RNA sequence: CACCAAAGUCUUUUGUCAGGGUGAUACUUCUAUUGAUAUUUAUAUCAAUGAUAUCCAGAAUAUUGCCUGUUACGCCUUUGGAAUAAUAAUACUACCCGCCCAUGAUCCUAAUUCUUGUUUCAAGAAUUGGUACUGGAAUCGUUUUGGUUCUGGUUUCGUUCAUACUUUGUUGAUAGUUUUUAUCGACGUCUUUAGGGUAGUAUCGGGAUCUUCUUGAGUUGAAACUAUUCUUGUUAAAGCUUUGCUUUGACUUCUGGUGAAUUUUUUCGUAGUAUAGAAACCGACAUUU
Number, nucleotide and partner (000 for none) at each position: 001c000002a000003c081004c080005a079006a078007a077008g000009u000010c000011u000012u000013u000014u000015g000016u000017c000018a000019g068020g067021g066022u065023g064024a063025u062026a061027c000028u059029u000030c000031u000032a000033u000034u047035g046036a045037u044038a043039u000040u000041u000042a000043u038044a037045u036046c035047a034048a000049u000050g000051a000052u000053a000054u000055c000056c000057a000058g000059a028060a000061u026062a025063u024064u023065g022066c021067c020068u019069g000070u000071u000072a000073c000074g000075c000076c000077u007078u006079u005080g004081g003082a000083a000084u000085a000086a000087u000088a000089a000090u000091a000092c200093u199094a198095c197096c196097c195098g000099c000100c136101c135102a134103u000104g000105a131106u130107c000108c000109u000110a128111a127112u126113u125114c124115u123116u122117g000118u000119u000120u000121c000122a116123a115124g114125a113126a112127u111128u110129g000130g106131u105132a000133c000134u102135g101136g100137a000138a000139u000140c000141g187142u186143u185144u000145u000146g000147g000148u000149u000150c000151u000152g000153g000154u000155u000156u000157c000158g000159u000160u000161c000162a000163u000164a000165c000166u000167u000168u000169g000170u000171u000172g000173a000174u000175a000176g000177u000178u000179u000180u000181u000182a000183u000184c000185g143186a142187c141188g000189u000190c000191u000192u000193u000194a000195g097196g096197g095198u094199a093200g092201u000202a000203u000204c283205g282206g281207g000208a000209u278210c277211u276212u000213c000214u000215u000216g000217a000218g000219u000220u269221g268222a267223a266224a265225c000226u000227a262228u261229u260230c259231u000232u000233g251234u250235u249236a248237a247238a246239g245240c000241u000242u000243u000244g000245c239246u238247u237248u236249g235250a234251c233252u000253u000254c000255u000256g000257g000258u000259g230260a229261a228262u227263u000264u000265u224266u223267u222268c221269g220270u000271a000272g000273u000274a000275u000276a211277g210278a209279a000280a000281c206282c205283g204284a000285c000286a000287u000288u000289u000